[Rfam]
RNA sequence: AAGAAUAGGAGAGAGAUUCCUUGAUUUCUCUUUUGCUCGAAAGAACAGAGGCAGAACAAAUGCUAUGGCCGAGAUAUCGUUUCAGUCGUCCUCUUUGAUUGACGAUUUGAUUGUUGCUCGUCCAACAU
Numbered sequence: 001a002a003g004a005a006u007a008g009g010a011g012a013g014a015g016a017u018u019c020c021u022u023g024a025u026u027u028c029u030c031u032u033u034u035g036c037u038c039g040a041a042a043g044a045a046c047a048g049a050g051g052c053a054g055a056a057c058a059a060a061u062g063c064u065a066u067g068g069c070c071g072a073g074a075u076a077u078c079g080u081u082u083c084a085g086u087c088g089u090c091c092u093c094u095u096u097g098a099u100u101g102a103c104g105a106u107u108u109g110a111u112u113g114u115u116g117c118u119c120g121u122c123c124a125a126c127a128u
Base pairs, nucleotide, nucleotide: 003038004037006035007034008033011030012029013028014027015026016025067123068122070120071119072118073117076111077110078109079108085106086105087104088103089102090101093097
Small nucleolar RNA snoR111: a 128-nucleotide RNA from Salix koriyanagi.
Lineage of the source: Eukaryota > Euphyllophyta > Pentapetalae > rosids > Salix.
Rfam classes the family as an H/ACA-box small nucleolar RNA.
On this family, see Marker et al., Curr Biol 2002: "Experimental RNomics: identification of 140 candidates for small non-messenger RNAs in the plant Arabidopsis thaliana".
Pairs were carried over by alignment from the consensus structure, which was predicted with WAR.